RNA sequence: CCCUUAACUAUUAAAAGUUUCGUUUUGGUCCUUUAACUUACUUUUUGGUUUCGUUUUGGUCCCUUAACUCUUCCUCCGUCAACCACUUUGGUCCUUUAUGUUAGGAUUAAUGUAUUAGAGUUAAGGACCAAAAUAAUACCAAAAAAUAAGUUAGGGACUAAAACUAAACUUUAAAUAGUUAAGGGACCAAAAGAAAACUUAAAAAUAAGUUAUGGGACCGAAACGAAACUUUUAAUAGUUAAGGAA
Numbered sequence: 001c002c003c004u005u006a007a008c009u010a011u012u013a014a015a016a017g018u019u020u021c022g023u024u025u026u027g028g029u030c031c032u033u034u035a036a037c038u039u040a041c042u043u044u045u046u047g048g049u050u051u052c053g054u055u056u057u058g059g060u061c062c063c064u065u066a067a068c069u070c071u072u073c074c075u076c077c078g079u080c081a082a083c084c085a086c087u088u089u090g091g092u093c094c095u096u097u098a099u100g101u102u103a104g105g106a107u108u109a110a111u112g113u114a115u116u117a118g119a120g121u122u123a124a125g126g127a128c129c130a131a132a133a134u135a136a137u138a139c140c141a142a143a144a145a146a147u148a149a150g151u152u153a154g155g156g157a158c159u160a161a162a163a164c165u166a167a168a169c170u171u172u173a174a175a176u177a178g179u180u181a182a183g184g185g186a187c188c189a190a191a192a193g194a195a196a197a198c199u200u201a202a203a204a205a206u207a208a209g210u211u212a213u214g215g216g217a218c219c220g221a222a223a224c225g226a227a228a229c230u231u232u233u234a235a236u237a238g239u240u241a242a243g244g245a246a
Stems, first nucleotide, its partner, number of pairs: 002244007023223003027219003031215002034212007042204002045201001047199001
This 246-nucleotide sequence from Medicago truncatula belongs to the Rfam family "MIR2655 microRNA precursor family".
The organism belongs to Medicago, within Eukaryota.
Rfam 15.1 lists 892 matches to the family in 5 species.